RNA sequence: UGAUCUUGGAUCAGAUAGAAGUACCUGCUGAACUUAAGCAUAUUAAUAAGUGGAGAAAAAGAAAUCAACAGGGAUUGUCUCAGUAAUAACAAGUAAAGUAACAAAAGCUCAAAUUUAAAAUCUGGCUCCAUGCAGAGUCUGAGUUGUAAUUUGAAGAGAAUACUUCAGAUGUGGCCAUAGCAUAAGUUUCUUGAAACAAGAUGUUAUAGAGAGUGAGAAUUCUAUCUUUAACUGCUGGACCACACUUAUGUGAAGUUCCUUUAACAAGUCAAGUUGUUUGGAAAUGCAGCUCUAAGUGGAUGGUAAAUUUCAUCUAAAGCUAAAUAUUGGCUGAAGACUGAUAGUACACAAGUAGAGUAAUUAAAAGAUUAAAAGCACCUUGAAAAGAAAGUUAAAUAGCAUAUAAAAUUAUUAAAAGAGAAG
Numbered sequence: 001u002g003a004u005c006u007u008g009g010a011u012c013a014g015a016u017a018g019a020a021g022u023a024c025c026u027g028c029u030g031a032a033c034u035u036a037a038g039c040a041u042a043u044u045a046a047u048a049a050g051u052g053g054a055g056a057a058a059a060a061g062a063a064a065u066c067a068a069c070a071g072g073g074a075u076u077g078u079c080u081c082a083g084u085a086a087u088a089a090c091a092a093g094u095a096a097a098g099u100a101a102c103a104a105a106a107g108c109u110c111a112a113a114u115u116u117a118a119a120a121u122c123u124g125g126c127u128c129c130a131u132g133c134a135g136a137g138u139c140u141g142a143g144u145u146g147u148a149a150u151u152u153g154a155a156g157a158g159a160a161u162a163c164u165u166c167a168g169a170u171g172u173g174g175c176c177a178u179a180g181c182a183u184a185a186g187u188u189u190c191u192u193g194a195a196a197c198a199a200g201a202u203g204u205u206a207u208a209g210a211g212a213g214u215g216a217g218a219a220u221u222c223u224a225u226c227u228u229u230a231a232c233u234g235c236u237g238g239a240c241c242a243c244a245c246u247u248a249u250g251u252g253a254a255g256u257u258c259c260u261u262u263a264a265c266a267a268g269u270c271a272a273g274u275u276g277u278u279u280g281g282a283a284a285u286g287c288a289g290c291u292c293u294a295a296g297u298g299g300a301u302g303g304u305a306a307a308u309u310u311c312a313u314c315u316a317a318a319g320c321u322a323a324a325u326a327u328u329g330g331c332u333g334a335a336g337a338c339u340g341a342u343a344g345u346a347c348a349c350a351a352g353u354a355g356a357g358u359a360a361u362u363a364a365a366a367g368a369u370u371a372a373a374a375g376c377a378c379c380u381u382g383a384a385a386a387g388a389a390a391g392u393u394a395a396a397u398a399g400c401a402u403a404u405a406a407a408a409u410u411a412u413u414a415a416a417a418g419a420g421a422a423g
Stems, first nucleotide, its partner, number of pairs: 024055001025053005035042002065072002076103003086094002106321004112151004118145002121142002124139004156262002158259001160257001163255004168246001170244005176237001179236004186202001188201002191198001205209001212227002272291006298315005355362002380387002
A member of the RNA family "Eukaryotic large subunit ribosomal RNA" from Coccidioides posadasii, 423 nucleotides of a longer RNA. Its family is annotated with ribosome and structural constituent of ribosome in the Gene Ontology. Pairs were carried over by alignment from the consensus structure, which is taken from published work.